[Rfam]
RNA sequence: AUAUAAGCUUUGAUGGAGAAAAAAGUAUUUAUUGUAUUAACUUAAGAGAAUCAACGGUUGGUGUAAGUUGGUGUUAAUUUAAAUAUGUAAUUAAUCACUCCGGAGCUUCCAAUUAGAAAGGCUUUUGCCAAGUAAAUGAGGACGUAUACCAACGAUAUAUGGUUAUGGUUCAUGUUAAAUAAAGUUUUUUAUUUAAAGUCGACCUGAAAUUGAGAGGUAAUUAGUAUAUCUAAUUGCAAAUAAGGUGGUACCACGGAGAUCAAUCUUUCGUCCUUAUG
Numbered sequence: 001a002u003a004u005a006a007g008c009u010u011u012g013a014u015g016g017a018g019a020a021a022a023a024a025g026u027a028u029u030u031a032u033u034g035u036a037u038u039a040a041c042u043u044a045a046g047a048g049a050a051u052c053a054a055c056g057g058u059u060g061g062u063g064u065a066a067g068u069u070g071g072u073g074u075u076a077a078u079u080u081a082a083a084u085a086u087g088u089a090a091u092u093a094a095u096c097a098c099u100c101c102g103g104a105g106c107u108u109c110c111a112a113u114u115a116g117a118a119a120g121g122c123u124u125u126u127g128c129c130a131a132g133u134a135a136a137u138g139a140g141g142a143c144g145u146a147u148a149c150c151a152a153c154g155a156u157a158u159a160u161g162g163u164u165a166u167g168g169u170u171c172a173u174g175u176u177a178a179a180u181a182a183a184g185u186u187u188u189u190u191a192u193u194u195a196a197a198g199u200c201g202a203c204c205u206g207a208a209a210u211u212g213a214g215a216g217g218u219a220a221u222u223a224g225u226a227u228a229u230c231u232a233a234u235u236g237c238a239a240a241u242a243a244g245g246u247g248g249u250a251c252c253a254c255g256g257a258g259a260u261c262a263a264u265c266u267u268u269c270g271u272c273c274u275u276a277u278g
Base pairs, nucleotide, nucleotide: 007106008105015101016100017099018098029085032082033081039075040074041073050072051071052070053069054068055067109141110140114136143154144153145152217237218236219235220234221233222232223231242275243274244273245272253271254270255269256268257267
Shown here is a 278-nucleotide RNA from Clostridium carboxidivorans, a member of the family "T-box leader". About the family: Uncharged tRNA acts as the effector for transcription antitermination of genes in the T-box leader family. The literature on the family includes a 1994 paper in J Bacteriol by Grundy et al., "Interaction between the acceptor end of tRNA and the T box stimulates antitermination in the Bacillus subtilis tyrS gene: a new role for the discriminator base". Rfam classes the family as a cis-regulatory leader. Gene Ontology term of the family: tRNA binding. Pairs were carried over by alignment from the consensus structure, which is taken from published work.